[Rfam]
c-di-GMP-I riboswitch aptamer: a 90-nucleotide sequence from Fictibacillus arsenicus.
RNA sequence: UUUGUUUAAAGGCAAACCAGUUGAAAAACUGGGACGCAAAGCUAUGGGCCUAAAGUAUGAACGAACAUACAAUGGCAGCCGGUUGCCAAA
Numbered sequence: 001u002u003u004g005u006u007u008a009a010a011g012g013c014a015a016a017c018c019a020g021u022u023g024a025a026a027a028a029c030u031g032g033g034a035c036g037c038a039a040a041g042c043u044a045u046g047g048g049c050c051u052a053a054a055g056u057a058u059g060a061a062c063g064a065a066c067a068u069a070c071a072a073u074g075g076c077a078g079c080c081g082g083u084u085g086c087c088a089a090a
Stems, first nucleotide, its partner, number of pairs: 012037002017032006040084004046080002048076003055070004
Its Rfam clan is "c-di-GMP_I riboswitch clan".